[Rfam]
RNA sequence: UCUCCCGCUUUCCCUCCCUGAGCGGGUACCUUAAUUCUAUUAAGGUAGCUUGCCCCCGGUUUUAAUCCCCUUUAACCGGGGGCUUUUUAU
Numbered sequence: 001u002c003u004c005c006c007g008c009u010u011u012c013c014c015u016c017c018c019u020g021a022g023c024g025g026g027u028a029c030c031u032u033a034a035u036u037c038u039a040u041u042a043a044g045g046u047a048g049c050u051u052g053c054c055c056c057c058g059g060u061u062u063u064a065a066u067c068c069c070c071u072u073u074a075a076c077c078g079g080g081g082g083c084u085u086u087u088u089a090u
Stems, first nucleotide, its partner, number of pairs: 004026006028046007053082008
RNA: Burkholderia RNA 7 (anti-hemB)